About this RNA: Rfam assigns this 88-nucleotide sequence from Scleropages formosus to the family "mir-132 microRNA precursor family". The match comes from Rfam's covariance-model search (68 bits). The literature on the family includes a 2005 paper in Genes Dev by Chen et al., "The developmental miRNA profiles of zebrafish as determined by small RNA cloning".

RNA sequence: AUGCAUCAACACCUUGGCUCUAGACUGCUUACUGGUAGAAGUGUGUCAAAGUACAGUAACAGUCUACAGUCAUGGCUACUGAUGCCUG
Numbered sequence: 001a002u003g004c005a006u007c008a009a010c011a012c013c014u015u016g017g018c019u020c021u022a023g024a025c026u027g028c029u030u031a032c033u034g035g036u037a038g039a040a041g042u043g044u045g046u047c048a049a050a051g052u053a054c055a056g057u058a059a060c061a062g063u064c065u066a067c068a069g070u071c072a073u074g075g076c077u078a079c080u081g082a083u084g085c086c087u088g
Stems, first nucleotide, its partner, number of pairs: 012075002015072004023064005029059005